[Rfam]
The family of this 63-nucleotide RNA sequence from Metallosphaera yellowstonensis is "Sulfolobus sRNA133". Rfam describes the family as follows. This RNA has structural homologues in 3 archaeon Sulfolobus genomes: tokodaii, acidocalarius and solfotaricus. On this family, see Tang et al., Mol Microbiol 2005: "Identification of novel non-coding RNAs as potential antisense regulators in the archaeon Sulfolobus solfataricus". Lineage of the source: Archaea > Thermoproteati > Thermoproteota > Sulfolobaceae > Metallosphaera yellowstonensis. The match comes from Rfam's covariance-model search (52 bits). Rfam 15.1 lists 27 matches to the family in 10 species.
RNA sequence: AAGGUAUCCAAUGAAGUUCCCCAUGUCCUUGAAGGGAGUUAGUCCCGUAGAAGGCGUGGGGAG
Numbered sequence: 001a002a003g004g005u006a007u008c009c010a011a012u013g014a015a016g017u018u019c020c021c022c023a024u025g026u027c028c029u030u031g032a033a034g035g036g037a038g039u040u041a042g043u044c045c046c047g048u049a050g051a052a053g054g055c056g057u058g059g060g061g062a063g
Base pairs, nucleotide, nucleotide: 017061018060019059020058024056025055026054027053029051030050034046035045036044037043